[Rfam]
The record is a 131-nucleotide RNA sequence from Erinaceus europaeus, which matches "Small Cajal body specific RNA 8" in Rfam. For this family Rfam cites "RNomics: an experimental approach that identifies 201 candidates for novel, small, non-messenger RNAs in mouse" (Huttenhofer et al., EMBO J, 2001). About the family: scaRNAs are a specific class of small nuclear RNAs which localise to the Cajal bodies and guide the modification of RNA polymerase II transcribed spliceosomal RNAs U1, U2, U4, U5 and U12. U92 belong to the H/ACA box class of guide RNAs as it has the predicted hairpin-hinge-hairpin-tail structure, conserved H/ACA-box motifs and is found associated with GAR1. The base pairs follow the family's consensus structure, which is taken from published work. Rfam links the family to the GO terms Cajal body, nucleolus and RNA processing. Lineage of the source: Eukaryota > Opisthokonta > Euteleostomi > Laurasiatheria > Erinaceus.

RNA sequence: UGGGAGGCUGAUACACAAGUAGGGAUGAAGUACUGCUCUACUUGUUACUACACCUCCCUAGAGCAGACUGCCUUCCGAUGACCUGGACGAAUUGAGAGAGGUCGUAACGGUUAGAAACAGGGCGAACAGUU
Dot-bracket structure: .((((((.......((((...(((...........)))...)))).......))))))..........((((((.......((...((((...........))))...))........)))))).......